This 92-nucleotide RNA from Paenibacillus lutimineralis belongs to the Rfam family "c-di-GMP-I riboswitch aptamer". Taxonomically the source falls in Paenibacillus (Bacteria, Bacillati, Caryophanales, Paenibacillaceae). Its family is annotated with cyclic-di-GMP binding in the Gene Ontology. From the family's description: GEMM was predicted in a large-scale screen for bacterial structured RNA regulatory elements.
RNA sequence: AAUCGAUCAAGGCAAACUCUUCGAAAGAAGGGGACGCAAAGCUAUAGGGGCUUCGUGAGGAUGAUUCCUUCACAUGCCAGCCAGUUGCCGAU
Numbered sequence: 001a002a003u004c005g006a007u008c009a010a011g012g013c014a015a016a017c018u019c020u021u022c023g024a025a026a027g028a029a030g031g032g033g034a035c036g037c038a039a040a041g042c043u044a045u046a047g048g049g050g051c052u053u054c055g056u057g058a059g060g061a062u063g064a065u066u067c068c069u070u071c072a073c074a075u076g077c078c079a080g081c082c083a084g085u086u087g088c089c090g091a092u
Stems, first nucleotide, its partner, number of pairs: 012037002017032006040086004047082002049078003056072004